Enterococcus sRNA 1300: a 222-nucleotide RNA sequence from Eubacteriaceae bacterium CHKCI004. Taxonomically the source falls in Eubacteriaceae (Bacteria, Bacillati, Clostridia, Eubacteriales). Rfam classes the family as a small RNA. Rfam describes the family as follows. Expressed in mid and late exponential phases of growth.
[Rfam]
RNA sequence: GUUGCAUAGCAUGCGUAUUAGAUAAGCAUUGAAAAAAAGGAUUUUCCCAUUUUCAACAUGGGCUUUUUUGUCAUGCUUAUUUUGCGGAUGCUAUACAAAAAACUAACGACGUAUAGAUAUAGUAUAGACAUGGUGCAAGCUAUGCCUUAGUUUUGUUGUACUGCUCUGUGCAUUAUAAAUGCAGGUCAAUGCUCAUGUUGAGGAUUGACCUGCAUUUUUUUG
Numbered sequence: 001g002u003u004g005c006a007u008a009g010c011a012u013g014c015g016u017a018u019u020a021g022a023u024a025a026g027c028a029u030u031g032a033a034a035a036a037a038a039g040g041a042u043u044u045u046c047c048c049a050u051u052u053u054c055a056a057c058a059u060g061g062g063c064u065u066u067u068u069u070g071u072c073a074u075g076c077u078u079a080u081u082u083u084g085c086g087g088a089u090g091c092u093a094u095a096c097a098a099a100a101a102a103c104u105a106a107c108g109a110c111g112u113a114u115a116g117a118u119a120u121a122g123u124a125u126a127g128a129c130a131u132g133g134u135g136c137a138a139g140c141u142a143u144g145c146c147u148u149a150g151u152u153u154u155g156u157u158g159u160a161c162u163g164c165u166c167u168g169u170g171c172a173u174u175a176u177a178a179a180u181g182c183a184g185g186u187c188a189a190u191g192c193u194c195a196u197g198u199u200g201a202g203g204a205u206u207g208a209c210c211u212g213c214a215u216u217u218u219u220u221u222g
Stems, first nucleotide, its partner, number of pairs: 006094007014086003020082010031071001033069006040063001047061004095156006103150004111145005179215006186208005192202004